[Rfam]
U11 spliceosomal RNA: a 131-nucleotide sequence from Pediculus humanus.
The source organism's lineage runs through Eukaryota, Pancrustacea, Hexapoda, Phthiraptera and Pediculus humanus.
Its family is annotated with U11 snRNP, mRNA 5'-splice site recognition and pre-mRNA 5'-splice site binding in the Gene Ontology.

RNA sequence: UAAAAGGGUGCUUGCUGCUUAGAUAGCACAUAGGUCCAAACGGGCCUGUGGGGUAUGGUUAUCAAGACAUAUCCAGCACGUAAUUUUUGUACCUGUAGGGCUGUUGACUGCCAAUAUGCAUCGACGCCCUC
Numbered sequence: 001u002a003a004a005a006g007g008g009u010g011c012u013u014g015c016u017g018c019u020u021a022g023a024u025a026g027c028a029c030a031u032a033g034g035u036c037c038a039a040a041c042g043g044g045c046c047u048g049u050g051g052g053g054u055a056u057g058g059u060u061a062u063c064a065a066g067a068c069a070u071a072u073c074c075a076g077c078a079c080g081u082a083a084u085u086u087u088u089g090u091a092c093c094u095g096u097a098g099g100g101c102u103g104u105u106g107a108c109u110g111c112c113a114a115u116a117u118g119c120a121u122c123g124a125c126g127c128c129c130u131c
Stems, first nucleotide, its partner, number of pairs: 008079005013028005029050009051074007098129004103125005109120003
Dot-bracket structure: .......((((((((((......)))))(((((((((....)))))))))(((((((..........))))))))))))..................((((.(((((.(((......))))))))))))..